[Rfam]
RNA: mir-9195 microRNA precursor family
RNA sequence: AGAGGCCCUCCGCGGCUGGGGUGGAAUGCUUGCCUCGUCACCGCAGCGAUGAAACAAGCAUUCUGCCAGGCCGCUCACGCUGCCUGC
Number, nucleotide and partner (000 for none) at each position: 001a000002g000003a000004g084005g083006c082007c000008c000009u000010c000011c000012g074013c073014g072015g071016c070017u069018g000019g000020g067021g066022u065023g064024g063025a062026a061027u060028g059029c058030u057031u056032g055033c000034c000035u000036c000037g050038u049039c048040a000041c046042c000043g000044c000045a000046g041047c000048g039049a038050u037051g000052a000053a000054a000055c032056a031057a030058g029059c028060a027061u026062u025063c024064u023065g022066c021067c020068a000069g017070g016071c015072c014073g013074c012075u000076c000077a000078c000079g000080c000081u000082g006083c005084c004085u000086g000087c000